[Rfam]
RNA sequence: UACGUGCUCUGGGGUCGGUGCAAGUCCGAACCGGCGGUGACAGUCCGCGACCCGGGAGGCGCCUGGCGCGCCGAGCGGUUGACCUGGUGGAACUCCGGGACCGACGGUGAGAGUCCGGAUGGGAAGAGACACGUG
Numbered sequence: 001u002a003c004g005u006g007c008u009c010u011g012g013g014g015u016c017g018g019u020g021c022a023a024g025u026c027c028g029a030a031c032c033g034g035c036g037g038u039g040a041c042a043g044u045c046c047g048c049g050a051c052c053c054g055g056g057a058g059g060c061g062c063c064u065g066g067c068g069c070g071c072c073g074a075g076c077g078g079u080u081g082a083c084c085u086g087g088u089g090g091a092a093c094u095c096c097g098g099g100a101c102c103g104a105c106g107g108u109g110a111g112a113g114u115c116c117g118g119a120u121g122g123g124a125a126g127a128g129a130c131a132c133g134u135g
Base pairs, nucleotide, nucleotide: 002134003133004132005131006130007128008127009126016028017027018026030114031113032103033102034048035047036046037045043101044100052078053077083099084098085097086096087095105117106116107115